[Rfam]
RNA sequence: UCCACCGUGAGGUGUGAACUGGAGGAAGUCCUAGGCAAAGUUCCGACCCAAGGAAUACGAACAUUUUCAGGCAAACUAUUUGUGGAUGAGUCUGCCAAACAAGACAAAGUCCAAUAACUACAUAGACGAAUAGGUGUAAAGAAUGUGGGUGCAUGGUAAUGAAAGUGAAUUGU
Dot-bracket structure: (.((((....)))).)...........((..(..((...(((.(.(((((...........(((((....(((..(((((((.((((..((((........))))...))))..............))))))).)))...)))))))))).....).)))....))..)..))
RNA: Group II catalytic intron D1-D4-3